[Rfam]
RNA sequence: AAAUGAACAGGUGAUGGGGUUCGCCUUUAACCGCUUUUAUUGCUGAUGACUCCUGCCAAAAU
Number, nucleotide and partner (000 for none) at each position: 001a000002a000003a000004u000005g000006a000007a000008c000009a000010g025011g024012u023013g022014a000015u000016g053017g052018g051019g050020u049021u048022c013023g012024c011025c010026u000027u000028u000029a000030a000031c000032c000033g043034c042035u000036u000037u000038u000039a000040u000041u000042g034043c033044u000045g000046a000047u000048g021049a020050c019051u018052c017053c016054u000055g000056c000057c000058a000059a000060a000061a000062u000

Notes:
Shown here is a 62-nucleotide sequence from Syntrophus gentianae, a member of the family "Fluoride riboswitch aptamer (crcB RNA motif)". Gene Ontology terms of the family: positive regulation of gene expression and response to fluoride. The family's consensus secondary structure is taken from published work.